Rfam assigns this 139-nucleotide sequence from Listeria welshimeri to the family "Ribosomal protein L20 leader". Rfam's curators put it in the seed alignment. The source organism's lineage runs through Bacteria, Bacillati, Bacilli, Listeriaceae and Listeria. About the family: This family is a putative r-protein leader autoregulatory structure found in B. subtilis and other low-GC Gram-positive bacteria. It is located in the 5' untranslated regions of mRNAs encoding initiation factor 3 followed by ribosomal proteins L35 and L20 (infC-rpmI-rplT). By type it is a cis-regulatory leader.
RNA sequence: ACAAGAAAGAAGAAGCAACCCGCUUCUCGCCUCGUUAACACGAACGUUUUCAGGCAAAAAAUUCAAACUUUCGUCGCGUAACUUACGCGAUUUUGAAUGUGCGGGAUUGCUGGAAAGCAGCCCGUUUUUUUAUGGCCUC
Numbered sequence: 001a002c003a004a005g006a007a008a009g010a011a012g013a014a015g016c017a018a019c020c021c022g023c024u025u026c027u028c029g030c031c032u033c034g035u036u037a038a039c040a041c042g043a044a045c046g047u048u049u050u051c052a053g054g055c056a057a058a059a060a061a062u063u064c065a066a067a068c069u070u071u072c073g074u075c076g077c078g079u080a081a082c083u084u085a086c087g088c089g090a091u092u093u094u095g096a097a098u099g100u101g102c103g104g105g106a107u108u109g110c111u112g113g114a115a116a117g118c119a120g121c122c123c124g125u126u127u128u129u130u131u132a133u134g135g136c137c138u139c
Base pairs, nucleotide, nucleotide: 011027012026013025014024015023016022029055030054031053037050038049040047041046101125102124103123104122105121107120108119109118110117111116